The record is a 335-nucleotide part of an RNA from Avrilella dinanensis, which matches "Bacterial large subunit ribosomal RNA" in Rfam. The organism belongs to Avrilella, within Bacteria. A search with the family's covariance model found it, with a score of 2795 bits. The base pairs follow the family's consensus structure, which is taken from published work.
Nucleotides: 335
Base pairs, nucleotide, nucleotide: 001335002334003333004332009330010329011328012327013326014325015324016323018321019320020319035059036058037057038056039055044049060077061076062075063074064073065072066071078082090314091313092312093311094310095309096308097306098305101115102114103113118153119152120151121150122149123148124147125146126143130139131138132137156301157300158299159298161231162230163229166228167227168224169223170222171221172220175219176218177217181213182212186208187207188206189205190204193200194199232250233249234248235247236246237245251255261288271287272286273285274284275283276282
Number, partner (000 for none) and nucleotide at each position: 001335c002334g003333a004332g005000u006000u007000a008000a009330u010329c011328a012327u013326g014325g015324c016323u017000a018321a019320g020319g021000a022000a023000c024000u025000a026000g027000g028000c029000a030000a031000a032000a033000u034000a035059g036058a037057c038056c039055u040000g041000u042000a043000a044049c045000u046000u047000c048000g049044g050000g051000a052000u053000a054000a055039a056038g057037g058036u059035c060077g061076c062075c063074a064073g065072u066071a067000g068000c069000a070000a071066u072065a073064c074063u075062g076061g077060c078082c079000u080000c081000a082078g083000u084000a085000a086000a087000g088000u089000g090314g091313u092312c093311c094310g095309a096308a097306c098305g099000a100000c101115u102114g103113u104000u105000u106000a107000u108000c109000a110000a111000a112000a113103a114102c115101a116000c117000a118153g119152g120151g121150c122149u123148c124147u125146g126143c127000a128000a129000a130139a131138u132137c133000g134000a135000a136000a137132g138131a139130u140000g141000a142000g143126g144000u145000a146125u147124a148123g149122g150121g151120c152119c153118u154000g155000a156301c157300a158299c159298c160000u161231g162230c163229c164000c165000g166228g167227u168224g169223c170222c171221g172220g173000a174000a175219g176218g177217u178000u179000a180000a181213g182212a183000g184000g185000a186208g187207a188206u189205g190204u191000u192000a193200u194199c195000a196000u197000u198000u199194g200193a201000g202000a203000a204190g205189c206188a207187u208186u209000g210000a211000a212182u213181u214000g215000a216000a217177g218176c219175c220172c221171c222170g223169g224168u225000a226000a227167a228166c229163g230162g231161c232250g233249g234248c235247c236246g237245u238000a239000a240000c241000u242000a243000u244000a245237a246236c247235g248234g249233u250232c251255c252000u253000a254000a255251g256000g257000u258000a259000g260000c261288g262000a263000a264000a265000u266000u267000c268000c269000u270000u271287g272286u273285c274284g275283g276282g277000u278000a279000a280000g281000u282276u283275c284274c285273g286272a287271c288261c289000u290000g291000c292000a293000c294000g295000a296000a297000u298159g299158g300157u301156g302000u303000a304000a305098c306097g307000a308096u309095u310094u311093g312092g313091a314090c315000a316000c317000u318000g319020u320019c321018u322000c323016a324015g325014c326013c327012a328011u329010g330009a331000g332004c333003u334002c335001g